The family of this 134-nucleotide RNA sequence is "drum RNA".
Firmicutes, Bacteroidetes (1 example), Proteobacteria (2 examples), Spirochaetes (2 examples).
Pairs were carried over by alignment from the consensus structure, which is taken from published work.
RNA sequence: GGCUGUUGAAAUACAUUCCUGUGCCGGCAAUACAGUGUGUAUGGAGGUCUCAAUGGCUCGGAAGUGCCAGCAAACCGGCGUAGAUAUUAGCAGACGUAUGGGCGUAAGACUUUUAUUGAAAGAAACUUCUUUAC
Numbered sequence: 001g002g003c004u005g006u007u008g009a010a011a012u013a014c015a016u017u018c019c020u021g022u023g024c025c026g027g028c029a030a031u032a033c034a035g036u037g038u039g040u041a042u043g044g045a046g047g048u049c050u051c052a053a054u055g056g057c058u059c060g061g062a063a064g065u066g067c068c069a070g071c072a073a074a075c076c077g078g079c080g081u082a083g084a085u086a087u088u089a090g091c092a093g094a095c096g097u098a099u100g101g102g103c104g105u106a107a108g109a110c111u112u113u114u115a116u117u118g119a120a121a122g123a124a125a126c127u128u129c130u131u132u133a134c
Base pairs, nucleotide, nucleotide: 001049002048003047004046011042012041013040014039015038016037019035020034021033022032024078025077026076027075061129062128063127083117084116085115086114